Rfam assigns this 78-nucleotide RNA from Thermosinus carboxydivorans to the family "NiCo (Nickel/Cobalt) riboswitch aptamer". The family's consensus secondary structure is taken from published work. The family is grouped with related families in Rfam's "NiCo_riboswitches". The sequence is in the family's curated seed alignment. Taxonomically the source falls in Thermosinus carboxydivorans (Bacteria, Bacillota, Sporomusaceae, Thermosinus). For this family Rfam cites "Bacterial riboswitches cooperatively bind Ni(2+) or Co(2+) ions and control expression of heavy metal transporters" (Furukawa et al., Mol Cell, 2015).
RNA sequence: AUAAUACAACAGGAACAGGCGGCUGCCGCGAGGCAGUGCAGCCGGGCGUUUGCAGCAGAAAGGCUCUGCGGGACCUGC
Numbered sequence: 001a002u003a004a005u006a007c008a009a010c011a012g013g014a015a016c017a018g019g020c021g022g023c024u025g026c027c028g029c030g031a032g033g034c035a036g037u038g039c040a041g042c043c044g045g046g047c048g049u050u051u052g053c054a055g056c057a058g059a060a061a062g063g064c065u066c067u068g069c070g071g072g073a074c075c076u077g078c
Stems, first nucleotide, its partner, number of pairs: 010077004016072001018043003022037006046053002055069005